RNA sequence: GUUUAGAUAGCCGGCAAGAUGUAGGCAUAGCCGAAAAACAUAUUGCGGCUAUGUCACAUCCAGCCAUCUCUCGAACCU
Numbered sequence: 001g002u003u004u005a006g007a008u009a010g011c012c013g014g015c016a017a018g019a020u021g022u023a024g025g026c027a028u029a030g031c032c033g034a035a036a037a038a039c040a041u042a043u044u045g046c047g048g049c050u051a052u053g054u055c056a057c058a059u060c061c062a063g064c065c066a067u068c069u070c071u072c073g074a075a076c077c078u
Stems, first nucleotide, its partner, number of pairs: 006072002009069002013065003018060004024055008
A member of the RNA family "mir-31 microRNA precursor family" from Cimex lectularius, 78 nucleotides long. The family's consensus secondary structure was predicted with RNAalifold. Rfam links the family to the GO terms RISC complex and gene silencing by miRNA. Lineage of the source: Eukaryota > Hexapoda > Dicondylia > Cimicoidea > Cimex. Its Rfam clan is "mir-31 microRNA precursor family". For this family Rfam cites "Mammalian microRNAs: experimental evaluation of novel and previously annotated genes" (Chiang et al., Genes Dev, 2010). The family has 75 seed sequences and 1,181 matches in Rfam 15.1.